[Rfam]
Rfam assigns this 96-nucleotide RNA sequence from Clostridium sp. CAG:75 to the family "SAM riboswitch aptamer (S box leader)". A search with the family's covariance model found it, with a score of 74 bits.
RNA sequence: CUCUUAUUUAGAGUGGCGGAGAGUGAAGGCUCUGUGAAACCACGGCAACCCCUGACAGGAAGGUGCCAAUCUCAGCGAGAAAUCGAGCAAUAAGAG
Number, nucleotide and partner (000 for none) at each position: 001c096002u095003c094004u093005u092006a091007u090008u089009u000010a000011g000012a000013g043014u042015g041016g040017c000018g000019g000020a000021g032022a031023g030024u000025g000026a000027a000028g073029g072030c023031u022032c021033u000034g000035u000036g000037a000038a000039a000040c016041c015042a014043c013044g067045g066046c065047a064048a000049c063050c062051c059052c058053u057054g000055a000056c000057a053058g052059g051060a000061a000062g050063g049064u047065g046066c045067c044068a000069a000070u000071c000072u029073c028074a000075g000076c085077g084078a083079g000080a000081a000082a000083u078084c077085g076086a000087g000088c000089a008090a007091u006092a005093a004094g003095a002096g001